[Rfam]
RNA: Archaeal large subunit ribosomal RNA, nucleotides 1384 to 1773
RNA sequence: GGCAGUAACAGCAUAGUAUUGUGAGAAACAAUACCACCGCAAGCGCAAGGGUUUCCAGGCAAUGCGUUAUCAGCCUGGAGGUAGUCGAUCCUAAGAUGUGCCUCAACAGAGUACAUCGAAUGGGAAAUCAGUUAAUAUUCUGAUACCUUGUAACAAUCGUUUGAGCUAUAUGAUUCGCUUCCGGAUAAGGAGUGUACAACUAUCGUUGUAUCCAAGCAUUCGAGGAUUGGGGAGUGUCGUAAUGACGAGAACCUUUCCGAGGUGUAAGUGGCUUCGCGUUAGCGAAGUUUUCUUGAUUCCAGGAGACCAUGAAAGAUUGUGUAGUUAGAAAGUAACAAGUUCGUACCCAGAACCGACACAGGUGCGCUGGCUUAGAAAGCUAAGGUGCUA
Numbered sequence: 001g002g003c004a005g006u007a008a009c010a011g012c013a014u015a016g017u018a019u020u021g022u023g024a025g026a027a028a029c030a031a032u033a034c035c036a037c038c039g040c041a042a043g044c045g046c047a048a049g050g051g052u053u054u055c056c057a058g059g060c061a062a063u064g065c066g067u068u069a070u071c072a073g074c075c076u077g078g079a080g081g082u083a084g085u086c087g088a089u090c091c092u093a094a095g096a097u098g099u100g101c102c103u104c105a106a107c108a109g110a111g112u113a114c115a116u117c118g119a120a121u122g123g124g125a126a127a128u129c130a131g132u133u134a135a136u137a138u139u140c141u142g143a144u145a146c147c148u149u150g151u152a153a154c155a156a157u158c159g160u161u162u163g164a165g166c167u168a169u170a171u172g173a174u175u176c177g178c179u180u181c182c183g184g185a186u187a188a189g190g191a192g193u194g195u196a197c198a199a200c201u202a203u204c205g206u207u208g209u210a211u212c213c214a215a216g217c218a219u220u221c222g223a224g225g226a227u228u229g230g231g232g233a234g235u236g237u238c239g240u241a242a243u244g245a246c247g248a249g250a251a252c253c254u255u256u257c258c259g260a261g262g263u264g265u266a267a268g269u270g271g272c273u274u275c276g277c278g279u280u281a282g283c284g285a286a287g288u289u290u291u292c293u294u295g296a297u298u299c300c301a302g303g304a305g306a307c308c309a310u311g312a313a314a315g316a317u318u319g320u321g322u323a324g325u326u327a328g329a330a331a332g333u334a335a336c337a338a339g340u341u342c343g344u345a346c347c348c349a350g351a352a353c354c355g356a357c358a359c360a361g362g363u364g365c366g367c368u369g370g371c372u373u374a375g376a377a378a379g380c381u382a383a384g385g386u387g388c389u390a
Stems, first nucleotide, its partner, number of pairs: 016034006035387004043367004049347002054079006063072002086343003090123002095117006102109002127144005147339005153333002171319003178305004183300003188294005194211005216265004226256001229253002236246003277282001353362002368382004